A member of the RNA family "msiK RNA" from Microbacterium halimionae, 57 nucleotides long. The match comes from Rfam's covariance-model search (62 bits). By type it is a cis-regulatory element. Pairs were carried over by alignment from the consensus structure, which is taken from published work.

RNA sequence: CCGUUAAAUCCUCACAACGGAUCGUCCGGCACGUACCUGCCGGUGAAGGAGAAGAAA
Number, nucleotide and partner (000 for none) at each position: 001c000002c000003g000004u000005u000006a000007a000008a000009u049010c048011c000012u046013c045014a044015c000016a000017a000018c000019g000020g000021a000022u000023c000024g000025u000026c043027c042028g041029g040030c039031a038032c000033g000034u000035a000036c000037c000038u031039g030040c029041c028042g027043g026044u014045g013046a012047a000048g010049g009050a000051g000052a000053a000054g000055a000056a000057a000